Nucleotides: 076
Stems, first nucleotide, its partner, number of pairs: 001075001003073005009067001011065002014062004021056003029053008037044002
Number, partner (000 for none) and nucleotide at each position: 001075g002000a003073g004072g005071c006070a007069c008000c009067c010000c011065u012064a013000u014062g015061g016060a017059g018000c019000a020000g021056g022055a023054c024000u025000u026000g027000c028000u029053u030052c031051a032050g033049u034048g035047g036046g037044g038043c039000u040000u041000u042000g043038g044037u045000g046036c047035u048034u049033a050032c051031u052030g053029a054023g055022u056021c057000c058000a059017c060016u061015c062014c063000u064012u065011g066000a067009g068000u069007g070006u071005g072004u073003u074000a075001u076000u
Description:
The family of this 76-nucleotide RNA from Myotis davidii is "mir-9229 microRNA precursor family". Lineage of the source: Eukaryota > Teleostomi > Sarcopterygii > Laurasiatheria > Myotis. Pairs were carried over by alignment from the consensus structure, which was predicted with RNAalifold. The match comes from Rfam's covariance-model search (72 bits). Gene Ontology terms of the family: RISC complex and miRNA-mediated post-transcriptional gene silencing.